Source information: This 80-nucleotide RNA sequence from Caloramator sp. E03 belongs to the Rfam family "ZMP/ZTP riboswitch aptamer (pfl RNA motif)".
RNA sequence: AUCUUAUCACACGACUGGCGGAAGUGGAGUUUACCACAGGGAGUGUGAUUUGUAUAGUGCCGACCGCCUGGGCAAAACCA
Numbered sequence: 001a002u003c004u005u006a007u008c009a010c011a012c013g014a015c016u017g018g019c020g021g022a023a024g025u026g027g028a029g030u031u032u033a034c035c036a037c038a039g040g041g042a043g044u045g046u047g048a049u050u051u052g053u054a055u056a057g058u059g060c061c062g063a064c065c066g067c068c069u070g071g072g073c074a075a076a077a078c079c080a
Stems, first nucleotide, its partner, number of pairs: 003052001006049007015040002017068005024037004058074004
Dot-bracket structure: ..(..(((((((..(([[[[[..((((......)))).))..)))))))..).....((((..]]]]]..))))......